[Rfam]
RNA: Selenocysteine insertion sequence 1
Organism: Pelusios castaneus
RNA sequence: UACACGUUAGUGAGGACUACAUAGAAAACCUUUUCUAAGGCAUGUGUAAGUCUGAUGUCAAGUGUA
Number, nucleotide and partner (000 for none) at each position: 001u066002a065003c064004a063005c062006g000007u000008u000009a000010g000011u000012g000013a000014g000015g052016a051017c050018u048019a047020c046021a045022u044023a043024g000025a000026a000027a000028a000029c000030c039031u038032u037033u000034u000035c000036u000037a032038a031039g030040g000041c000042a000043u023044g022045u021046g020047u019048a018049a000050g017051u016052c015053u000054g000055a000056u000057g000058u000059c000060a000061a000062g005063u004064g003065u002066a001